[Rfam]
RNA sequence: AAUGAAUUCCCGGAGAGGGAACUCCGGGAAGAUACAAUAAAUUAAGAUUAAGUGGUAGGAAUCAACGGGUACUAU
Numbered sequence: 001a002a003u004g005a006a007u008u009c010c011c012g013g014a015g016a017g018g019g020a021a022c023u024c025c026g027g028g029a030a031g032a033u034a035c036a037a038u039a040a041a042u043u044a045a046g047a048u049u050a051a052g053u054g055g056u057a058g059g060a061a062u063c064a065a066c067g068g069g070u071a072c073u074a075u
Stems, first nucleotide, its partner, number of pairs: 007030009064075001
Dot-bracket structure: ......(((((((((......))))))))).................................(..........)
Source information:
This 75-nucleotide sequence from Panicum hallii belongs to the Rfam family "Plastid-rpl20 3UTR RNA". The literature on the family includes a 2023 paper in Plant Commun by Richter et al., "Retrograde signaling in plants: A critical review focusing on the GUN pathway and beyond". The organism belongs to Panicum hallii, within Eukaryota. Rfam describes the family as follows. Plastid rpl20 is a non-coding RNA (ncRNA) recognised in plastids. It was found in the three prime untranslated region (3UTR) of rpl20 gene, it presence in the 3UTR region sugest a role in transcript maduration.